[Rfam]
RNA sequence: ACCUGGUCCGGGUGCGCAGCGUGCCCGGAUCACCAGACAGGCACAGAUCUCGGGGAAGAACCGGGGCAUGUUGGGGUGUU
Numbered sequence: 001a002c003c004u005g006g007u008c009c010g011g012g013u014g015c016g017c018a019g020c021g022u023g024c025c026c027g028g029a030u031c032a033c034c035a036g037a038c039a040g041g042c043a044c045a046g047a048u049c050u051c052g053g054g055g056a057a058g059a060a061c062c063g064g065g066g067c068a069u070g071u072u073g074g075g076g077u078g079u080u
Stems, first nucleotide, its partner, number of pairs: 004032013047069002049066003053062001
RNA: nrdJ RNA